A member of the RNA family "Plastid-atpF group II-D1 intron" from Malania oleifera, 53 nucleotides long.
Taxonomically the source falls in Malania (Eukaryota, Viridiplantae, Euphyllophyta, Ximeniaceae).
The sequence is in the family's curated seed alignment.
Rfam 15.1 lists 1,372 matches to the family in 227 species.
Nucleotides: 053
Stems, first nucleotide, its partner, number of pairs: 011033007
Number, partner (000 for none) and nucleotide at each position: 001000u002000a003000a004000a005000u006000u007000g008000u009000u010000u011033u012032c013031g014030a015029u016028a017027u018000a019000g020000a021000a022000c023000a024000c025000u026000c027017a028016u029015g030014u031013c032012g033011a034000g035000a036000a037000a038000a039000u040000g041000a042000u043000u044000u045000g046000a047000a048000c049000u050000u051000u052000u053000u